[Rfam]
RNA: GP20-b RNA
RNA sequence: CGAUUGCCUGAUCGUAAAACAGGAGACGGCCGUGGCCGCGACCACGUAAAAAAGCGUA
Numbered sequence: 001c002g003a004u005u006g007c008c009u010g011a012u013c014g015u016a017a018a019a020c021a022g023g024a025g026a027c028g029g030c031c032g033u034g035g036c037c038g039c040g041a042c043c044a045c046g047u048a049a050a051a052a053a054g055c056g057u058a
Stems, first nucleotide, its partner, number of pairs: 001014004007023004031046004